Shown here is a 204-nucleotide RNA from Pseudoalteromonas sp. A25, a member of the family "Lysine riboswitch aptamer".
RNA sequence: AGGGCUGGAAGAGGUGCGUUAUUCAGGUAAUUGUGUGGAGGGGAGCAAACCCUAAUGAUACACAAUGAGGGGAAUUAACGCCGAGAAGUUUAGCGUAUUUGCGUUGCGUUAACUUCGGGCGACUGGGCUGAAUCCCAGCGACUGUCACCAAUUAUUUUGUGUUAAACACAAAAUAACUCAGUUUGGUGGAGAGCUUCUGGUCUU
Numbered sequence: 001a002g003g004g005c006u007g008g009a010a011g012a013g014g015u016g017c018g019u020u021a022u023u024c025a026g027g028u029a030a031u032u033g034u035g036u037g038g039a040g041g042g043g044a045g046c047a048a049a050c051c052c053u054a055a056u057g058a059u060a061c062a063c064a065a066u067g068a069g070g071g072g073a074a075u076u077a078a079c080g081c082c083g084a085g086a087a088g089u090u091u092a093g094c095g096u097a098u099u100u101g102c103g104u105u106g107c108g109u110u111a112a113c114u115u116c117g118g119g120c121g122a123c124u125g126g127g128c129u130g131a132a133u134c135c136c137a138g139c140g141a142c143u144g145u146c147a148c149c150a151a152u153u154a155u156u157u158u159g160u161g162u163u164a165a166a167c168a169c170a171a172a173a174u175a176a177c178u179c180a181g182u183u184u185g186g187u188g189g190a191g192a193g194c195u196u197c198u199g200g201u202c203u204u
Stems, first nucleotide, its partner, number of pairs: 006199006016081006023074001030066008085116006092109001094108004117143002120140001123138005145189007
Background:
Taxonomically the source falls in Pseudoalteromonas (Bacteria, Pseudomonadati, Pseudomonadota, Pseudoalteromonadaceae).